[Rfam]
RNA sequence: AAUUUUUUAAAAGCGCCAGGACUAUGCAUCCGAUCGGCAAGAAGCAUAGUUGACGAGGUUGGAGGUUAUCGAACGUUCGGCGGGUGCCUCCCGAUUGUACAUCUCAAUUGUCAAGCUCUUCCUUAAAACAAUGAGGCAACUUAUUGGCCAAAGGGAAACGGCAAGAUGUUAC
Number, nucleotide and partner (000 for none) at each position: 001a000002a000003u000004u000005u000006u000007u000008u000009a000010a000011a000012a000013g000014c000015g000016c000017c000018a000019g000020g051021a050022c049023u048024a047025u046026g045027c044028a000029u042030c000031c000032g000033a000034u000035c000036g000037g000038c000039a000040a000041g000042a029043a000044g027045c026046a025047u024048a023049g022050u021051u020052g000053a000054c000055g000056a000057g000058g000059u000060u000061g091062g090063a089064g088065g087066u000067u000068a000069u080070c079071g078072a077073a000074c000075g000076u000077u072078c071079g070080g069081c000082g000083g000084g000085u000086g000087c065088c064089u063090c062091c061092c110093g109094a108095u107096u106097g105098u000099a000100c000101a000102u000103c000104u000105c097106a096107a095108u094109u093110g092111u000112c000113a000114a000115g162116c161117u160118c000119u157120u156121c155122c000123u000124u000125a000126a000127a000128a000129c146130a145131a144132u143133g142134a141135g140136g000137c000138a000139a000140c135141u134142u133143a132144u131145u130146g129147g000148c000149c000150a000151a000152a000153g000154g000155g121156a120157a119158a000159c000160g117161g116162c115163a000164a000165g000166a000167u000168g000169u000170u000171a000172c000
Notes:
Rfam assigns this 172-nucleotide RNA sequence from Virgibacillus pantothenticus to the family "glmS glucosamine-6-phosphate activated ribozyme aptamer". Lineage of the source: Bacteria > Bacillati > Bacillota > Bacillaceae > Virgibacillus. A search with the family's covariance model found it, with a score of 106 bits.